[Rfam]
RNA sequence: UCACUCUGGUAUCUCUUCAAUAAGCGAAUAAAUCUUUCGCCUUUUACUAAAGAUUUCCGUGGAGAGGUACAACUCAAAUGAGUCUACAAACAAUUUUUUGUUGGCCUGACGAAAGUCGGGCCC
Numbered sequence: 001u002c003a004c005u006c007u008g009g010u011a012u013c014u015c016u017u018c019a020a021u022a023a024g025c026g027a028a029u030a031a032a033u034c035u036u037u038c039g040c041c042u043u044u045u046a047c048u049a050a051a052g053a054u055u056u057c058c059g060u061g062g063a064g065a066g067g068u069a070c071a072a073c074u075c076a077a078a079u080g081a082g083u084c085u086a087c088a089a090a091c092a093a094u095u096u097u098u099u100g101u102u103g104g105c106c107u108g109a110c111g112a113a114a115g116u117c118g119g120g121c122c123c
Base pairs, nucleotide, nucleotide: 003083004082005081006080009070010069011068012067013066014065015064016063017062018061019060030056031055032054033053034052035051036050037049103122104121105120106119107118108117